[Rfam]
RNA: mir-9195 microRNA precursor family
Organism: Cnephaeus nilssonii
RNA sequence: AGAGGCCCUCUGCGGCCAGGGUGGAAUGCUUGCCUUGUUGCCGUGGUGACAAAGCAAGCAUUCCACCAGGCUGCUCACGCUGCCCAC
Numbered sequence: 001a002g003a004g005g006c007c008c009u010c011u012g013c014g015g016c017c018a019g020g021g022u023g024g025a026a027u028g029c030u031u032g033c034c035u036u037g038u039u040g041c042c043g044u045g046g047u048g049a050c051a052a053a054g055c056a057a058g059c060a061u062u063c064c065a066c067c068a069g070g071c072u073g074c075u076c077a078c079g080c081u082g083c084c085c086a087c
Stems, first nucleotide, its partner, number of pairs: 004084003012074006020067014037050005